[Rfam]
RNA sequence: UCUGGCUGUGAUGACACACUUGCCCUCACUGACAUUGGUCUUGAUUGAGACUCUUUAUUUUGCUGAGCCAUG
Numbered sequence: 001u002c003u004g005g006c007u008g009u010g011a012u013g014a015c016a017c018a019c020u021u022g023c024c025c026u027c028a029c030u031g032a033c034a035u036u037g038g039u040c041u042u043g044a045u046u047g048a049g050a051c052u053c054u055u056u057a058u059u060u061u062g063c064u065g066a067g068c069c070a071u072g
Stems, first nucleotide, its partner, number of pairs: 001072001003070004
A member of the RNA family "Small nucleolar RNA SNORD103/SNORD85" from Amphiprion percula, 72 nucleotides long. Rfam classes the family as a C/D-box small nucleolar RNA. The literature on the family includes a 2001 paper in EMBO J by Huttenhofer et al., "RNomics: an experimental approach that identifies 201 candidates for novel, small, non-messenger RNAs in mouse". Its family is annotated with RNA processing and nucleolus in the Gene Ontology. Lineage of the source: Eukaryota > Euteleosteomorpha > Euacanthomorphacea > Ovalentaria > Amphiprion. The base pairs follow the family's consensus structure.